[Rfam]
RNA sequence: GCGAUGAGCUGAUUUGUGUAAGUCGAAAGAUAAUGAAAUAAGUGAUGUGAACACUUAGUUCUUUCGCCACAAAUAUAUCGAAGGCGCCUAUACUAUUGACGUAUGGGCGUC
Numbered sequence: 001g002c003g004a005u006g007a008g009c010u011g012a013u014u015u016g017u018g019u020a021a022g023u024c025g026a027a028a029g030a031u032a033a034u035g036a037a038a039u040a041a042g043u044g045a046u047g048u049g050a051a052c053a054c055u056u057a058g059u060u061c062u063u064u065c066g067c068c069a070c071a072a073a074u075a076u077a078u079c080g081a082a083g084g085c086g087c088c089u090a091u092a093c094u095a096u097u098g099a100c101g102u103a104u105g106g107g108c109g110u111c
Base pairs, nucleotide, nucleotide: 014072015071016070017069018068024066025065026064027063028062029061030060039057040056042054043053044052083111084110085109086108087107088106089105090104091103092102093101
A member of the RNA family "BsrF" from Bacilli bacterium VT-13-104, 111 nucleotides long. The family's RNA type in Rfam is small RNA. The source organism's lineage runs through Bacteria, Bacillati, Bacillota and Bacilli.